[Rfam]
RNA sequence: CACCCAUGAUGACUUGCCAUGCUAAUACCGAGGCACUGAGAGGGACAACUGUCCCUGAAUUCAGGUGUCUGUGAGUUAAAAUUGCUUCUCACGGGAAGUCCUGAGGUGU
Numbered sequence: 001c002a003c004c005c006a007u008g009a010u011g012a013c014u015u016g017c018c019a020u021g022c023u024a025a026u027a028c029c030g031a032g033g034c035a036c037u038g039a040g041a042g043g044g045a046c047a048a049c050u051g052u053c054c055c056u057g058a059a060u061u062c063a064g065g066u067g068u069c070u071g072u073g074a075g076u077u078a079a080a081a082u083u084g085c086u087u088c089u090c091a092c093g094g095g096a097a098g099u100c101c102u103g104a105g106g107u108g109u
Base pairs, nucleotide, nucleotide: 001108002107003106004105041056042055043054044053045052
Small nucleolar RNA U6-53/MBII-28: a 109-nucleotide sequence from Notechis scutatus. The organism belongs to Notechis, within Eukaryota. The base pairs follow the family's consensus structure.